Rfam assigns this 349-nucleotide part of an RNA to the family "Bacterial small subunit ribosomal RNA". Pairs were carried over by alignment from the consensus structure, which is taken from published work. It scores 691 bits against the family's covariance model.

RNA sequence: GGUGUAAAGUGUAAUUAGAUGGUAAUAUAACAAAGAGAUUAAGGGGUCAAAGACCUAUAUUUGGUUUUCUUUAUUAUUAUAUUACUUGAAUGGUUUAAAGGAAAUUGGAAUUUCAAGUGUAAGGAUGAAAUCUGGACAUAUUUGAAGGAACUCCUAUUGGCUAAUGCAGAUUUCUUAUAUUUCAUUGACAUUCAGAUACGAAAGUGUGGGGAGCAAAUAGGAUUAGAUACCCUUUUAGUCCACACCCUAAACUAUGAAUGUUUUUGGACGGAGUCCUCCGUUCUUUUACCUAUACAGGUUAAACAUUCCACCUGGGGAGUAUUAGGGCAACCUUGAAACCCAAAAGAAA
Numbered sequence: 001g002g003u004g005u006a007a008a009g010u011g012u013a014a015u016u017a018g019a020u021g022g023u024a025a026u027a028u029a030a031c032a033a034a035g036a037g038a039u040u041a042a043g044g045g046g047u048c049a050a051a052g053a054c055c056u057a058u059a060u061u062u063g064g065u066u067u068u069c070u071u072u073a074u075u076a077u078u079a080u081a082u083u084a085c086u087u088g089a090a091u092g093g094u095u096u097a098a099a100g101g102a103a104a105u106u107g108g109a110a111u112u113u114c115a116a117g118u119g120u121a122a123g124g125a126u127g128a129a130a131u132c133u134g135g136a137c138a139u140a141u142u143u144g145a146a147g148g149a150a151c152u153c154c155u156a157u158u159g160g161c162u163a164a165u166g167c168a169g170a171u172u173u174c175u176u177a178u179a180u181u182u183c184a185u186u187g188a189c190a191u192u193c194a195g196a197u198a199c200g201a202a203a204g205u206g207u208g209g210g211g212a213g214c215a216a217a218u219a220g221g222a223u224u225a226g227a228u229a230c231c232c233u234u235u236u237a238g239u240c241c242a243c244a245c246c247c248u249a250a251a252c253u254a255u256g257a258a259u260g261u262u263u264u265u266g267g268a269c270g271g272a273g274u275c276c277u278c279c280g281u282u283c284u285u286u287u288a289c290c291u292a293u294a295c296a297g298g299u300u301a302a303a304c305a306u307u308c309c310a311c312c313u314g315g316g317g318a319g320u321a322u323u324a325g326g327g328c329a330a331c332c333u334u335g336a337a338a339c340c341c342a343a344a345a346g347a348a349a
Base pairs, nucleotide, nucleotide: 001312002311003310009309011199012198013197018192019191020190022085023084024083025082026081027080028079030078032074034072035071036070037069038068049060051058089186090185091184092182093181095179100175101174102173103172104171105170106169107151111147112146113145114144115143116142117141118140122133123132124131157168160167161166204245205244206243207242208241209240213239214238219233220232221231256308257307258306259305260304261303266283267282268281269280270279271278272277290297291296314341315340316339324333325332326331
Dot-bracket structure: (((.....(.(((....(((.(((((((.(.(.(((((..........(.(......).).......))))).)...))))))))...(((((.(....((((((((...((((((((...(((......)))......))))))))...).....(..((....))))))))))...).)).)))...)))....)))....((((((...((....(((.........)))....))))))))..........((((((....(((((((....)))))))......((....)).....)))))))))).(((.......(((....))).....)))........